[Rfam]
RNA sequence: GUCCACGAUGCGGCAGACCAGAUCCAGAUCCCUCCCAGGGCGAUGGCAGUGGCCGGCCAUGCUCUCGUCGUCAUGGCGAGCAGGCCGGUUGC
Numbered sequence: 001g002u003c004c005a006c007g008a009u010g011c012g013g014c015a016g017a018c019c020a021g022a023u024c025c026a027g028a029u030c031c032c033u034c035c036c037a038g039g040g041c042g043a044u045g046g047c048a049g050u051g052g053c054c055g056g057c058c059a060u061g062c063u064c065u066c067g068u069c070g071u072c073a074u075g076g077c078g079a080g081c082a083g084g085c086c087g088g089u090u091g092c
Stems, first nucleotide, its partner, number of pairs: 001018003024046003031039002049092010063082001064080006

Rhizobiales sRNA Atu_Ti1: a 92-nucleotide sequence from Mesorhizobium sp. NBSH29. It scores 73 bits against the family's covariance model. Taxonomically the source falls in Mesorhizobium (Bacteria, Alphaproteobacteria, Hyphomicrobiales, Phyllobacteriaceae). It is annotated as a small RNA.